[Rfam]
RNA sequence: GUCCUCCCAGGCUGUGGUUGCGGGUGCGCCGCGCGCAUCCUAGUCCAUGACAGACGCGGUCAAAGGGACCCACGUAAGCACGCGUGUGCGCAUGCGUGCGAUCAUGGCGCGUCCUAGAGGUAAGUCGCACCGUCCGUUUCUAGGGGUAAUUCCGCCCCGCGGGCGAGCGGGCAAGUCGUGAUGCCAUCGCGGUGGCUGAGCAAACGUCCCAGUGCGCAGGUGUGGGGGAAAAGACCAGGUCAGCUGGAGGAC
Numbered sequence: 001g002u003c004c005u006c007c008c009a010g011g012c013u014g015u016g017g018u019u020g021c022g023g024g025u026g027c028g029c030c031g032c033g034c035g036c037a038u039c040c041u042a043g044u045c046c047a048u049g050a051c052a053g054a055c056g057c058g059g060u061c062a063a064a065g066g067g068a069c070c071c072a073c074g075u076a077a078g079c080a081c082g083c084g085u086g087u088g089c090g091c092a093u094g095c096g097u098g099c100g101a102u103c104a105u106g107g108c109g110c111g112u113c114c115u116a117g118a119g120g121u122a123a124g125u126c127g128c129a130c131c132g133u134c135c136g137u138u139u140c141u142a143g144g145g146g147u148a149a150u151u152c153c154g155c156c157c158c159g160c161g162g163g164c165g166a167g168c169g170g171g172c173a174a175g176u177c178g179u180g181a182u183g184c185c186a187u188c189g190c191g192g193u194g195g196c197u198g199a200g201c202a203a204a205c206g207u208c209c210c211a212g213u214g215c216g217c218a219g220g221u222g223u224g225g226g227g228g229a230a231a232a233g234a235c236c237a238g239g240u241c242a243g244c245u246g247g248a249g250g251a252c
Stems, first nucleotide, its partner, number of pairs: 001252007012243003015237005047223003050060001053113006069107002074102001105230001126216005131165007169209004178201002185194003

Shown here is a 252-nucleotide RNA, a member of the family "raiA RNA". The family's RNA type in Rfam is riboswitch.